[Rfam]
RNA: RNase MRP
RNA sequence: UUCUCGCUCAAACAAUCGCUAUCAAAGCUCACACACCGACAUGGCCUCGCGUCACUGUCUGCCACAUAAAGCUUUGGGAGAAAGUCCCCGGACAUCAGUGUUCAUCACUGCAAGCUGAAAAGCGCCGCCACAGAAGCAUUUUUCCGCGGCUCAUCCACUUCUGCACCUCCAUCCUCCUUCACCACCCACCACCGCUUGCACUCCUUUGGGACCGCUGCUCUGCUCGGCAUCGUACCUGGCUCGAAGUCCGCUGCAAGGUGCCUUCGCAAGAGGGAGACGAGGAUAUGAGUCUGCGCUUCUUUCCAGCCGGUGUCGCUGCAGAGUCUGCACGAACGAAGGAGGAGGUGACUGGGAGUCUUGGUGAGGACAAGUUGGAAUCAAGGUCAGUUGAGGAGUCCAUCGUCAAGGUUAAUAGUUAUGCGAUUGCUCGUGCUGCCAUCAUCCUGCUACACUCUGUUCAGGGCUGGUGACUGCUGGGUAACUCGAUGGGGCUUAUUCUUGAUGCGAGA
Numbered sequence: 001u002u003c004u005c006g007c008u009c010a011a012a013c014a015a016u017c018g019c020u021a022u023c024a025a026a027g028c029u030c031a032c033a034c035a036c037c038g039a040c041a042u043g044g045c046c047u048c049g050c051g052u053c054a055c056u057g058u059c060u061g062c063c064a065c066a067u068a069a070a071g072c073u074u075u076g077g078g079a080g081a082a083a084g085u086c087c088c089c090g091g092a093c094a095u096c097a098g099u100g101u102u103c104a105u106c107a108c109u110g111c112a113a114g115c116u117g118a119a120a121a122g123c124g125c126c127g128c129c130a131c132a133g134a135a136g137c138a139u140u141u142u143u144c145c146g147c148g149g150c151u152c153a154u155c156c157a158c159u160u161c162u163g164c165a166c167c168u169c170c171a172u173c174c175u176c177c178u179u180c181a182c183c184a185c186c187c188a189c190c191a192c193c194g195c196u197u198g199c200a201c202u203c204c205u206u207u208g209g210g211a212c213c214g215c216u217g218c219u220c221u222g223c224u225c226g227g228c229a230u231c232g233u234a235c236c237u238g239g240c241u242c243g244a245a246g247u248c249c250g251c252u253g254c255a256a257g258g259u260g261c262c263u264u265c266g267c268a269a270g271a272g273g274g275a276g277a278c279g280a281g282g283a284u285a286u287g288a289g290u291c292u293g294c295g296c297u298u299c300u301u302u303c304c305a306g307c308c309g310g311u312g313u314c315g316c317u318g319c320a321g322a323g324u325c326u327g328c329a330c331g332a333a334c335g336a337a338g339g340a341g342g343a344g345g346u347g348a349c350u351g352g353g354a355g356u357c358u359u360g361g362u363g364a365g366g367a368c369a370a371g372u373u374g375g376a377a378u379c380a381a382g383g384u385c386a387g388u389u390g391a392g393g394a395g396u397c398c399a400u401c402g403u404c405a406a407g408g409u410u411a412a413u414a415g416u417u418a419u420g421c422g423a424u425u426g427c428u429c430g431u432g433c434u435g436c437c438a439u440c441a442u443c444c445u446g447c448u449a450c451a452c453u454c455u456g457u458u459c460a461g462g463g464c465u466g467g468u469g470a471c472u473g474c475u476g477g478g479u480a481a482c483u484c485g486a487u488g489g490g491g492c493u494u495a496u497u498c499u500u501g502a503u504g505c506g507a508g509a
Stems, first nucleotide, its partner, number of pairs: 002509006008502004014425006022078001023076006038053003042049002082494003086491004114123003347397003356393006366385003427478004